[Rfam]
RNA sequence: AAAUCUAGAAAAGCGAUGGAUAGGGUCCUUUAGUCCAUCGCUUUUCUGGAUUUUU
Number, nucleotide and partner (000 for none) at each position: 001a053002a052003a051004u050005c049006u048007a047008g046009a045010a044011a043012a042013g041014c040015g039016a038017u037018g036019g035020a034021u033022a000023g000024g000025g000026u000027c000028c000029u000030u000031u000032a000033g021034u020035c019036c018037a017038u016039c015040g014041c013042u012043u011044u010045u009046c008047u007048g006049g005050a004051u003052u002053u001054u000055u000
Record summary:
This 55-nucleotide RNA from Solanum tuberosum belongs to the Rfam family "MIR8008 microRNA precursor family". The family has 2 seed sequences and 240 matches in Rfam 15.1. Rfam links the family to the GO terms miRNA-mediated post-transcriptional gene silencing and RISC complex.